[Rfam]
RNA sequence: UAGGCUCAGAAGUGCCAGGCUGUUUCUCUAGACCUGUGAAGGUCUGGAGAGCAGUGUUGAGUCCCCAGGCCGAGAGCAUGGGGUGUGCUGAUUUAAAAACAGAAAAUGCAAAGUUGGACUGAAAAUAUCCUUAGUCUUCCAAGCAAUCUGCUUAAGGGUUCCAAACUUACCUUCUUUUGGUGAGCAAAGAGGCUGCCCUAUUUUCCCCCCUUUCUUUCUUUCUUGUUUUCUUCUUCUUGUACAACUGGAACCAGCCAUUUCCCAAAGCCACCACCAUG
Numbered sequence: 001u002a003g004g005c006u007c008a009g010a011a012g013u014g015c016c017a018g019g020c021u022g023u024u025u026c027u028c029u030a031g032a033c034c035u036g037u038g039a040a041g042g043u044c045u046g047g048a049g050a051g052c053a054g055u056g057u058u059g060a061g062u063c064c065c066c067a068g069g070c071c072g073a074g075a076g077c078a079u080g081g082g083g084u085g086u087g088c089u090g091a092u093u094u095a096a097a098a099a100c101a102g103a104a105a106a107u108g109c110a111a112a113g114u115u116g117g118a119c120u121g122a123a124a125a126u127a128u129c130c131u132u133a134g135u136c137u138u139c140c141a142a143g144c145a146a147u148c149u150g151c152u153u154a155a156g157g158g159u160u161c162c163a164a165a166c167u168u169a170c171c172u173u174c175u176u177u178u179g180g181u182g183a184g185c186a187a188a189g190a191g192g193c194u195g196c197c198c199u200a201u202u203u204u205c206c207c208c209c210c211u212u213u214c215u216u217u218c219u220u221u222c223u224u225g226u227u228u229u230c231u232u233c234u235u236c237u238u239g240u241a242c243a244a245c246u247g248g249a250a251c252c253a254g255c256c257a258u259u260u261c262c263c264a265a266a267g268c269c270a271c272c273a274c275c276a277u278g
Stems, first nucleotide, its partner, number of pairs: 046262005067235003072230004076224001078201008087193003092188003100150004107145003114142005121136002166184006
Dot-bracket structure: .............................................(((((................(((..(((((.((((((((.(((..(((.....((((...(((....(((((..((............)).)))))))).))))...............((((((.......)))))).)))..)))))))))))......................)..))))..)))......................)))))................
About this RNA: Shown here is a 278-nucleotide RNA from Chinchilla lanigera, a member of the family "Voltage-gated potassium-channel Kv1.4 IRES". This family represents the Kv1.4 voltage-gated potassium-channel internal ribosome entry site (IRES). This region has been shown to mediate internal ribosome entry in cells derived from brain, heart, and skeletal muscle, tissues known to express Kv1.4 mRNA species. For this family Rfam cites "Structurally distinct elements mediate internal ribosome entry within the 5'-noncoding region of a voltage-gated potassium channel mRNA" (Jang et al., J Biol Chem, 2004). Pairs were carried over by alignment from the consensus structure, which was predicted with RNAalifold. Rfam classes the family as an internal ribosome entry site. The match comes from Rfam's covariance-model search (221 bits).